[Rfam]
RNA: Actinobacteria sRNA Ms_IGR-7
Organism: Mycolicibacterium chitae
RNA sequence: CGGAAGUGCCUUUCCGAGUUGUGCCGAUAAGUGCGUAAGGAACACUCAUCAUCACAGUUCAGAGGGCACUUUCCUCAUUCCGACACCCCAUGACCAGCCAGUUCAUCGGUGGAACGAG
Numbered sequence: 001c002g003g004a005a006g007u008g009c010c011u012u013u014c015c016g017a018g019u020u021g022u023g024c025c026g027a028u029a030a031g032u033g034c035g036u037a038a039g040g041a042a043c044a045c046u047c048a049u050c051a052u053c054a055c056a057g058u059u060c061a062g063a064g065g066g067c068a069c070u071u072u073c074c075u076c077a078u079u080c081c082g083a084c085a086c087c088c089c090a091u092g093a094c095c096a097g098c099c100a101g102u103u104c105a106u107c108g109g110u111g112g113a114a115c116g117a118g
Stems, first nucleotide, its partner, number of pairs: 002073012016060002019057005026050003030046001032044002099116001102113004